RNA sequence: AGAUCGUGGGUGGUCACUCUAGGCACUGAGGCAUAGUGCUGGGGAUGUUGCAGCUGCCUGGCAGUGACUUCUCACAGUCC
Numbered sequence: 001a002g003a004u005c006g007u008g009g010g011u012g013g014u015c016a017c018u019c020u021a022g023g024c025a026c027u028g029a030g031g032c033a034u035a036g037u038g039c040u041g042g043g044g045a046u047g048u049u050g051c052a053g054c055u056g057c058c059u060g061g062c063a064g065u066g067a068c069u070u071c072u073c074a075c076a077g078u079c080c
Stems, first nucleotide, its partner, number of pairs: 002079003006075003010071001012069007020060006026053001028051001030049004034044001
RNA: mir-1301 microRNA precursor family
Organism: Mesocricetus auratus